[Rfam]
RNA sequence: GCUAGGAAGAGGAAGAAAUAGAGGGCGUAAGAGCAGUGGGAAUGAGAACAUAUAGGAAACCCUAACUUUACUGAUUCUUCACCUCUUUUCUUGAGGUAGAAAUUUAGUUUGGCAAUUCCCGAUGCCUCUCAUUCCUAUUGUUCUUAGGCGCUUCUUCCUAUUCCUUUUGGUU
Numbered sequence: 001g002c003u004a005g006g007a008a009g010a011g012g013a014a015g016a017a018a019u020a021g022a023g024g025g026c027g028u029a030a031g032a033g034c035a036g037u038g039g040g041a042a043u044g045a046g047a048a049c050a051u052a053u054a055g056g057a058a059a060c061c062c063u064a065a066c067u068u069u070a071c072u073g074a075u076u077c078u079u080c081a082c083c084u085c086u087u088u089u090c091u092u093g094a095g096g097u098a099g100a101a102a103u104u105u106a107g108u109u110u111g112g113c114a115a116u117u118c119c120c121g122a123u124g125c126c127u128c129u130c131a132u133u134c135c136u137a138u139u140g141u142u143c144u145u146a147g148g149c150g151c152u153u154c155u156u157c158c159u160a161u162u163c164c165u166u167u168u169g170g171u172u
Base pairs, nucleotide, nucleotide: 009163010162011161013159015157016156017155021153022152023151026148028146029145030144031143032142033141034140035139037137038136039135040134041133042132043131044130045129046128047127049124050123051122055119056118057117058116
Shown here is a 172-nucleotide RNA sequence from Aegilops tauschii, a member of the family "MIR2118 microRNA precursor family". The match comes from Rfam's covariance-model search (121 bits). The source organism's lineage runs through Eukaryota, Mesangiospermae, Petrosaviidae, Triticodae and Aegilops tauschii.